Description:
The record is a 109-nucleotide RNA from Heliorestis acidaminivorans, which matches "SAM riboswitch aptamer (S box leader)" in Rfam.
RNA sequence: AGCUCAUCAAGAGAGGUGGAGGGAAAGGGCCCGAUGAAACCCGGCAACCAGUUCUAUUACGAUCAUGGUGCCAAUUCCUUCAGGAACAUAGAGUCCUGGCAGAUGAGAG
Numbered sequence: 001a002g003c004u005c006a007u008c009a010a011g012a013g014a015g016g017u018g019g020a021g022g023g024a025a026a027g028g029g030c031c032c033g034a035u036g037a038a039a040c041c042c043g044g045c046a047a048c049c050a051g052u053u054c055u056a057u058u059a060c061g062a063u064c065a066u067g068g069u070g071c072c073a074a075u076u077c078c079u080u081c082a083g084g085a086a087c088a089u090a091g092a093g094u095c096c097u098g099g100c101a102g103a104u105g106a107g108a109g
Stems, first nucleotide, its partner, number of pairs: 003107006013042001015041003021032003026080004043072004048068002051063003076101001081098005
The family's consensus secondary structure is taken from published work.